[Rfam]
RNA sequence: UCGCAUGGCUAAGUAGUAGCGCCGCAGGUGAAAGUAAAUAUAUUGAAUCCACCCGCGAUCUACUGCUUAACAAUGACG
Number, nucleotide and partner (000 for none) at each position: 001u078002c000003g000004c075005a074006u073007g000008g000009c000010u069011a068012a067013g066014u065015a064016g063017u062018a061019g060020c000021g000022c000023c000024g056025c055026a000027g053028g052029u051030g050031a000032a000033a000034g000035u000036a000037a000038a000039u000040a000041u000042a000043u000044u000045g000046a000047a000048u000049c000050c030051a029052c028053c027054c000055g025056c024057g000058a000059u000060c019061u018062a017063c016064u015065g014066c013067u012068u011069a010070a000071c000072a000073a006074u005075g004076a000077c000078g001
Shown here is a 78-nucleotide RNA sequence from Orchesella cincta, a member of the family "mir-252 microRNA precursor family". Rfam links the family to the GO terms miRNA-mediated post-transcriptional gene silencing and RISC complex. NCBI's taxonomy places the organism under Eukaryota, Metazoa, Protostomia, Altocrustacea, Orchesella. Pairs were carried over by alignment from the consensus structure, which was predicted with RNAalifold.